RNA sequence: CGGGUUUACUCCUGGAUGUUACCGUUUCGUCCGACCGGAGCCGGACGUCGUUUUGGUGUCUGAUUCGGCAAACGAAUCGGGAGCACCAUCUGCGUAGGCCGGUGAUUUAAGGCUUGCGCCACCUACGGUCUUGGAUAGCCCCCGCCAGGCAGGGACCCCAAUGAUUCGGGCGAAGGCCGUGCCCUCGCCCUA
Numbered sequence: 001c002g003g004g005u006u007u008a009c010u011c012c013u014g015g016a017u018g019u020u021a022c023c024g025u026u027u028c029g030u031c032c033g034a035c036c037g038g039a040g041c042c043g044g045a046c047g048u049c050g051u052u053u054u055g056g057u058g059u060c061u062g063a064u065u066c067g068g069c070a071a072a073c074g075a076a077u078c079g080g081g082a083g084c085a086c087c088a089u090c091u092g093c094g095u096a097g098g099c100c101g102g103u104g105a106u107u108u109a110a111g112g113c114u115u116g117c118g119c120c121a122c123c124u125a126c127g128g129u130c131u132u133g134g135a136u137a138g139c140c141c142c143c144g145c146c147a148g149g150c151a152g153g154g155a156c157c158c159c160a161a162u163g164a165u166u167c168g169g170g171c172g173a174a175g176g177c178c179g180u181g182c183c184c185u186c187g188c189c190c191u192a
Stems, first nucleotide, its partner, number of pairs: 002158006011149004023050002028047006035040001054088006060080007092145003097140003105136010174191003178187002
RNA: Pseudomonas sRNA P27